[Rfam]
The record is a 293-nucleotide RNA sequence from Actinidia chinensis, which matches "Plant signal recognition particle RNA" in Rfam. Rfam 15.1 lists 4,988 matches to the family in 266 species. Taxonomically the source falls in Actinidia chinensis (Eukaryota, Embryophyta, asterids, Actinidiaceae). Rfam links the family to the GO terms signal recognition particle, endoplasmic reticulum targeting and SRP-dependent cotranslational protein targeting to membrane, signal sequence recognition.
RNA sequence: GUGAGUCACUCCAGUGAUGUAGCUCGGACGACGAGUACAAUGACCAUCAGAGCAGCGAAUACAUCAGGUUGGGCCCGUGGGUGGUAAUCGAUGGUCCACCCGUUCCAAGUGGAGAGUUGAGCCACGCGGCCCAUUCGAAAGCCUGGGCCUUGUGGUUCCUAGAGUGGAGGGCAAUGCGUGAGGCUGGUUUCACAGAGCAGCGAAUACCUCCCGCUCUUUACGGUGGAAGGAUUACGGGUCGGUGCUUUCCGGCCCAAUAACGCCUAAAUGGGCUUGUCCUAAUCGGACAGUUA
Numbered sequence: 001g002u003g004a005g006u007c008a009c010u011c012c013a014g015u016g017a018u019g020u021a022g023c024u025c026g027g028a029c030g031a032c033g034a035g036u037a038c039a040a041u042g043a044c045c046a047u048c049a050g051a052g053c054a055g056c057g058a059a060u061a062c063a064u065c066a067g068g069u070u071g072g073g074c075c076c077g078u079g080g081g082u083g084g085u086a087a088u089c090g091a092u093g094g095u096c097c098a099c100c101c102g103u104u105c106c107a108a109g110u111g112g113a114g115a116g117u118u119g120a121g122c123c124a125c126g127c128g129g130c131c132c133a134u135u136c137g138a139a140a141g142c143c144u145g146g147g148c149c150u151u152g153u154g155g156u157u158c159c160u161a162g163a164g165u166g167g168a169g170g171g172c173a174a175u176g177c178g179u180g181a182g183g184c185u186g187g188u189u190u191c192a193c194a195g196a197g198c199a200g201c202g203a204a205u206a207c208c209u210c211c212c213g214c215u216c217u218u219u220a221c222g223g224u225g226g227a228a229g230g231a232u233u234a235c236g237g238g239u240c241g242g243u244g245c246u247u248u249c250c251g252g253c254c255c256a257a258u259a260a261c262g263c264c265u266a267a268a269u270g271g272g273c274u275u276g277u278c279c280u281a282a283u284c285g286g287a288c289a290g291u292u293a
Stems, first nucleotide, its partner, number of pairs: 001038003004018001007016003023035004041293004047287002050284002054280002056276003060272001062270002066265004071255005077249001081247001083245001085244002092241006100230002103228005109221009119158008128149006136141001159164001166211005175204001177202003184195003